[Rfam]
RNA: Selenocysteine insertion sequence 1
RNA sequence: GCCAGCGUAUGAUGACCUGCAUUAAAACCUAAAAGCAGGGAGUGCAGGUCUGAUGUCACCUGGU
Numbered sequence: 001g002c003c004a005g006c007g008u009a010u011g012a013u014g015a016c017c018u019g020c021a022u023u024a025a026a027a028c029c030u031a032a033a034a035g036c037a038g039g040g041a042g043u044g045c046a047g048g049u050c051u052g053a054u055g056u057c058a059c060c061u062g063g064u
Stems, first nucleotide, its partner, number of pairs: 001064005014050010028038001